[Rfam]
The record is a 104-nucleotide RNA sequence from Polaromonas naphthalenivorans, which matches "Glycine riboswitch aptamer" in Rfam. NCBI's taxonomy places the organism under Bacteria, Pseudomonadati, Pseudomonadota, Comamonadaceae, Polaromonas naphthalenivorans.

Nucleotides: 104
Base pairs, nucleotide, nucleotide: 009096010095011094012093013092020036021035022034023033038084039083040082041080042079045078046077047076051071052070
Number, partner (000 for none) and nucleotide at each position: 001000c002000u003000u004000g005000c006000c007000c008000g009096g010095u011094c012093a013092g014000g015000a016000g017000a018000g019000a020036g021035u022034u023033u024000u025000c026000c027000c028000c029000g030000a031000g032000a033023a034022a035021a036020c037000c038084g039083c040082c041080g042079a043000a044000g045078g046077c047076g048000c049000a050000u051071g052070u053000g054000c055000c056000a057000c058000c059000c060000c061000c062000a063000a064000u065000g066000g067000u068000g069000g070052a071051c072000u073000g074000a075000a076047c077046g078045c079042u080041c081000a082040g083039g084038c085000a086000a087000a088000a089000g090000g091000a092013c093012u094011g095010g096009c097000a098000a099000c100000c101000g102000u103000c104000c